[Rfam]
RNA: c-di-AMP riboswitch aptamer (ydaO/yuaA leader)
RNA sequence: CGGCUUCCGUCGUCCGUACCGUCGGGCAGGAGCGGGGGACCCACACGUUCUCCGUCGGUGCGGGAGCGGUGCCAAGGCGCGCCGUCCCCGCCGACUCGGGGUGAAGCCGCGCCGUGCGGCCGGGCGAACUCCAGCCCGAACCCGACAGCUCACCUCGCAGGCGUCGGAGGAGGA
Number, nucleotide and partner (000 for none) at each position: 001c160002g000003g000004c000005u031006u030007c029008c000009g000010u000011c000012g000013u000014c000015c000016g000017u000018a000019c000020c000021g000022u000023c000024g000025g000026g000027c000028a000029g007030g006031a005032g158033c157034g156035g155036g154037g153038g000039a000040c000041c000042c098043a000044c000045a000046c000047g000048u000049u000050c000051u000052c000053c000054g000055u000056c000057g000058g000059u000060g000061c000062g000063g000064g000065a000066g000067c000068g000069g000070u000071g000072c000073c000074a000075a000076g000077g000078c000079g000080c000081g000082c000083c000084g000085u000086c000087c000088c000089c000090g000091c000092c000093g000094a000095c000096u000097c000098g042099g143100g142101g141102u000103g000104a000105a000106g000107c119108c118109g117110c116111g000112c000113c000114g000115u000116g110117c109118g108119g107120c000121c000122g137123g136124g135125c134126g000127a000128a000129c000130u000131c000132c000133a000134g125135c124136c123137c122138g000139a000140a000141c101142c100143c099144g000145a000146c000147a000148g000149c000150u000151c000152a000153c037154c036155u035156c034157g033158c032159a000160g001161g000162c000163g000164u000165c000166g000167g000168a000169g000170g000171a000172g000173g000174a000